[Rfam]
RNA sequence: UGCGAACGCCAUGGCCCCCCGGCACGCCCGCCCGAUAGACUGCCGACGAGCGGCGUGGCCCUGCGGGCCUGCCGUUCGCUGAAACAGCCAGCAGCCGCUGCAACCCCAGGGAG
Numbered sequence: 001u002g003c004g005a006a007c008g009c010c011a012u013g014g015c016c017c018c019c020c021g022g023c024a025c026g027c028c029c030g031c032c033c034g035a036u037a038g039a040c041u042g043c044c045g046a047c048g049a050g051c052g053g054c055g056u057g058g059c060c061c062u063g064c065g066g067g068c069c070u071g072c073c074g075u076u077c078g079c080u081g082a083a084a085c086a087g088c089c090a091g092c093a094g095c096c097g098c099u100g101c102a103a104c105c106c107c108a109g110g111g112a113g
Stems, first nucleotide, its partner, number of pairs: 048077006057069004089100004
This 113-nucleotide sequence from Streptomyces lonarensis belongs to the Rfam family "Streptomyces-metK RNA". The match comes from Rfam's covariance-model search (55 bits). The source organism's lineage runs through Bacteria, Bacillati, Actinomycetota, Kitasatosporales and Streptomyces.